The record is an 85-nucleotide sequence from Acetobacterium bakii, which matches "c-di-GMP-I riboswitch aptamer" in Rfam. From the family's description: GEMM was predicted in a large-scale screen for bacterial structured RNA regulatory elements.

RNA sequence: UUGAAUAGAUGGCAUACUUACCGAAAAGUAAGGACGCAAAACUAGAGGGUCUAAAUAAUUUAUUAUAUGACAGCCAGUUGCAAAG
Numbered sequence: 001u002u003g004a005a006u007a008g009a010u011g012g013c014a015u016a017c018u019u020a021c022c023g024a025a026a027a028g029u030a031a032g033g034a035c036g037c038a039a040a041a042c043u044a045g046a047g048g049g050u051c052u053a054a055a056u057a058a059u060u061u062a063u064u065a066u067a068u069g070a071c072a073g074c075c076a077g078u079u080g081c082a083a084a085g
Stems, first nucleotide, its partner, number of pairs: 012037002017032005040079004047075002049071003056065003